[Rfam]
Nucleotides: 147
Stems, first nucleotide, its partner, number of pairs: 005143006017029003031127002033116002035049004044114002053091007096112005118130003
Number, partner (000 for none) and nucleotide at each position: 001000c002000a003000c004000u005143u006142g007141u008140u009139c010138c011000g012000g013000g014000a015000a016000u017029c018028g019027g020000u021000g022000g023000a024000a025000u026000u027019c028018c029017g030000a031127a032126c033116u034115g035049g036048c037047g038046g039000u040000g041000a042000c043000a044114g045113c046038c047037c048036g049035c050000u051000a052000a053091c054090c055089g056088g057087c058086u059085c060000c061000a062000c063000g064000g065000c066000c067000c068000g069000c070000a071000c072000c073000c074000g075000c076000g077000g078000g079000a080000c081000c082000g083000c084000u085059g086058a087057g088056c089055u090054g091053g092000c093000c094000u095000g096112a097111c098110c099109g100108g101000u102000g103000g104000a105000a106000u107000u108100c109099c110098g111097g112096u113045g114044c115034c116033g117000a118130c119129a120128g121000u122000c123000a124000c125000a126032g127031u128120c129119u130118g131000g132000a133000u134000g135000g136000g137000a138010g139009g140008a141007a142006c143005a144000c145000a146000a147000c